Shown here is a 178-nucleotide sequence from Pseudooceanicola algae, a member of the family "Ruegeria cis52 sRNA".
A search with the family's covariance model found it, with a score of 119 bits.
The literature on the family includes a 2016 paper in Front Microbiol by Rivers et al., "Experimental Identification of Small Non-Coding RNAs in the Model Marine Bacterium Ruegeria pomeroyi DSS-3".
By type it is a small RNA.
Rfam 15.1 lists 277 matches to the family in 275 species.
[Rfam]
RNA sequence: UGCGCAGGGCGUGCUUCAAAACGAUGUUGUGGAAGGCCACGCCCUUCAGCCGCGCGGUGCGGACAUAUUGUGCGGUCAUGACCUCGGCCAUCGAGGCCCGCGUCAUCCGCGCCACAUAGCCCAUGCCAUAAAGCGCGAUGGUCAGGACCGGCAGAAAGAAAUUCUCGAAUGUCGCGCC
Numbered sequence: 001u002g003c004g005c006a007g008g009g010c011g012u013g014c015u016u017c018a019a020a021a022c023g024a025u026g027u028u029g030u031g032g033a034a035g036g037c038c039a040c041g042c043c044c045u046u047c048a049g050c051c052g053c054g055c056g057g058u059g060c061g062g063a064c065a066u067a068u069u070g071u072g073c074g075g076u077c078a079u080g081a082c083c084u085c086g087g088c089c090a091u092c093g094a095g096g097c098c099c100g101c102g103u104c105a106u107c108c109g110c111g112c113c114a115c116a117u118a119g120c121c122c123a124u125g126c127c128a129u130a131a132a133g134c135g136c137g138a139u140g141g142u143c144a145g146g147a148c149c150g151g152c153a154g155a156a157a158g159a160a161a162u163u164c165u166c167g168a169a170u171g172u173c174g175c176g177c178c
Stems, first nucleotide, its partner, number of pairs: 005140002009136004015130001016128001021124001028123002031120001040111003046105001048103001051100002054097001055075001057073006082096005146178001149174005154165001156163002